[Rfam]
Annotation: Shown here is a 288-nucleotide sequence from Aureimonas pseudogalii, a member of the family "5' ureB small RNA". The family's consensus secondary structure was predicted with mfold. A reference for the family is Wen et al. (2013), "Helicobacter pylori 5'ureB-sRNA, a cis-encoded antisense small RNA, negatively regulates ureAB expression by transcription termination", J Bacteriol. NCBI's taxonomy places the organism under Bacteria, Pseudomonadota, Alphaproteobacteria, Aurantimonadaceae, Aureimonas.
RNA sequence: CCUCGUCGAUCUGCUGCGGGCAGAUGAAAUGGAUGUGACUGUCCACCCCGCCGGCGGUGAGGAUCUUGCCCUCGCCGGCGAUCGCCUCGGUGCCGGGGCCGACCACGAUGGUGACGCCCGGCUGCGUGUCGGGGUUGCCGGCCUUGCCGAUGGCGUGGAUGCGCCCGCCGCGUAGGCCGACGUCGGCCUUGUAGAUGCCGGUAUGGUCGAGGAUCAGCGCAUUGGUGAUGACGGUGUCGACCGCCCCUUGUGCCCGGCUCUGCUGCGACUGGCCCAUGCCGUCGCGGA
Numbered sequence: 001c002c003u004c005g006u007c008g009a010u011c012u013g014c015u016g017c018g019g020g021c022a023g024a025u026g027a028a029a030u031g032g033a034u035g036u037g038a039c040u041g042u043c044c045a046c047c048c049c050g051c052c053g054g055c056g057g058u059g060a061g062g063a064u065c066u067u068g069c070c071c072u073c074g075c076c077g078g079c080g081a082u083c084g085c086c087u088c089g090g091u092g093c094c095g096g097g098g099c100c101g102a103c104c105a106c107g108a109u110g111g112u113g114a115c116g117c118c119c120g121g122c123u124g125c126g127u128g129u130c131g132g133g134g135u136u137g138c139c140g141g142c143c144u145u146g147c148c149g150a151u152g153g154c155g156u157g158g159a160u161g162c163g164c165c166c167g168c169c170g171c172g173u174a175g176g177c178c179g180a181c182g183u184c185g186g187c188c189u190u191g192u193a194g195a196u197g198c199c200g201g202u203a204u205g206g207u208c209g210a211g212g213a214u215c216a217g218c219g220c221a222u223u224g225g226u227g228a229u230g231a232c233g234g235u236g237u238c239g240a241c242c243g244c245c246c247c248u249u250g251u252g253c254c255c256g257g258c259u260c261u262g263c264u265g266c267g268a269c270u271g272g273c274c275c276a277u278g279c280c281g282u283c284g285c286g287g288a
Stems, first nucleotide, its partner, number of pairs: 003287001007284003011158004016154002018076002022072002030053003034050002037048001040045001057069003077148002081144001085140001090138002092135003096130002098125002101123001103121002107117001163273001165272003171267005176259001177257002186220002189217003201208001224254002230249002234247001236245001